[Rfam]
RNA sequence: CUGCAUUCUCAGGGCGGGGUGAAAUUCCCCACCGGCGGUAUGUGGCCUGCGCCACGAGCCCGCGAGCGGCCCUUCCGGGGGUGUCAGCAGAUCCGGUGAGAUGCCGGAGCCGACGGUCAUAGUCCGGAUGAAAGAGAAUGUGA
Numbered sequence: 001c002u003g004c005a006u007u008c009u010c011a012g013g014g015c016g017g018g019g020u021g022a023a024a025u026u027c028c029c030c031a032c033c034g035g036c037g038g039u040a041u042g043u044g045g046c047c048u049g050c051g052c053c054a055c056g057a058g059c060c061c062g063c064g065a066g067c068g069g070c071c072c073u074u075c076c077g078g079g080g081g082u083g084u085c086a087g088c089a090g091a092u093c094c095g096g097u098g099a100g101a102u103g104c105c106g107g108a109g110c111c112g113a114c115g116g117u118c119a120u121a122g123u124c125c126g127g128a129u130g131a132a133a134g135a136g137a138a139u140g141u142g143a
Stems, first nucleotide, its partner, number of pairs: 003141008017029003031123002033112002035063004058110002066088002092108005114126003
Background
FMN riboswitch aptamer (RFN element): a 143-nucleotide RNA sequence from Sulfitobacter sp. HI0023. Taxonomically the source falls in Sulfitobacter (Bacteria, Pseudomonadati, Pseudomonadota, Roseobacteraceae).